[Rfam]
RNA sequence: UGCUUGCCGAUGAUGAUGAAAAAUAAAUUUCUGAACAAUUGAUUGAAAAUGAUGCCAGUGAUUUCUCUGAGGUAAGCA
Numbered sequence: 001u002g003c004u005u006g007c008c009g010a011u012g013a014u015g016a017u018g019a020a021a022a023a024u025a026a027a028u029u030u031c032u033g034a035a036c037a038a039u040u041g042a043u044u045g046a047a048a049a050u051g052a053u054g055c056c057a058g059u060g061a062u063u064u065c066u067c068u069g070a071g072g073u074a075a076g077c078a
Stems, first nucleotide, its partner, number of pairs: 002077007
Notes:
This 78-nucleotide sequence from Notothenia coriiceps belongs to the Rfam family "Small nucleolar RNA SNORD72". Rfam describes the family as follows. snoRNA HBII-240 belongs to the CD family of snoRNAs. It is the human orthologue of the mouse MBII-240 and is predicted to guide 2'O-ribose methylation of the large 28S rRNA at residue U4590. For this family Rfam cites "RNomics: an experimental approach that identifies 201 candidates for novel, small, non-messenger RNAs in mouse" (Huttenhofer et al., EMBO J, 2001). The organism belongs to Notothenia, within Eukaryota.